[Rfam]
RNA sequence: UGGUGCCCAACAUGGGGCCCAAGAACAGGGGACUUAGUGAGGGAUGCUGUUCAUGGGUCCAAAGUAGAAAAAGAAAAAGAAAAUAGAGGACUGAUGUGGGAGCCUGCCAUGCCGCUGAACCCCAGUAAGUGAACAGCGAUUAUGGGACAAGAAAUUAGCCAGCAUGAGAUUUUUGUUGAAAAUUUAGUUAAACGUUUAAAGACACAAGGAGUUAAGGUGAAUACUGAACAAUUAUGCCAAUGCUUUGAUUUUAUAAAAGAGGUUUGCCCUU
Numbered sequence: 001u002g003g004u005g006c007c008c009a010a011c012a013u014g015g016g017g018c019c020c021a022a023g024a025a026c027a028g029g030g031g032a033c034u035u036a037g038u039g040a041g042g043g044a045u046g047c048u049g050u051u052c053a054u055g056g057g058u059c060c061a062a063a064g065u066a067g068a069a070a071a072a073g074a075a076a077a078a079g080a081a082a083a084u085a086g087a088g089g090a091c092u093g094a095u096g097u098g099g100g101a102g103c104c105u106g107c108c109a110u111g112c113c114g115c116u117g118a119a120c121c122c123c124a125g126u127a128a129g130u131g132a133a134c135a136g137c138g139a140u141u142a143u144g145g146g147a148c149a150a151g152a153a154a155u156u157a158g159c160c161a162g163c164a165u166g167a168g169a170u171u172u173u174u175g176u177u178g179a180a181a182a183u184u185u186a187g188u189u190a191a192a193c194g195u196u197u198a199a200a201g202a203c204a205c206a207a208g209g210a211g212u213u214a215a216g217g218u219g220a221a222u223a224c225u226g227a228a229c230a231a232u233u234a235u236g237c238c239a240a241u242g243c244u245u246u247g248a249u250u251u252u253a254u255a256a257a258a259g260a261g262g263u264u265u266g267c268c269c270u271u
Stems, first nucleotide, its partner, number of pairs: 006030003013024001035049004082126001084124001086121001091117001092114001095111005130149002134146001137144002155198001157196001158193001205247005211241002215233002218230002256271002259268001

Source information
Rfam assigns this 271-nucleotide RNA sequence from Cavia porcellus to the family "Mason-Pfizer monkey virus packaging signal". On this family, see Mustafa et al., Virus Res 2004: "Mutational analysis of the predicted secondary RNA structure of the Mason-Pfizer monkey virus packaging signal". It scores 101 bits against the family's covariance model. Rfam describes the family as follows. This family represents a group of sequences that are related to the Mason-Pfizer monkey virus (MPMV) packaging signal. The packaging signal is located in the 5' UTR and is required for specific RNA encapsidation. The family's RNA type in Rfam is cis-regulatory element. NCBI's taxonomy places the organism under Eukaryota, Deuterostomia, Tetrapoda, Caviidae, Cavia. The family has 9 seed sequences and 2,921 matches in Rfam 15.1.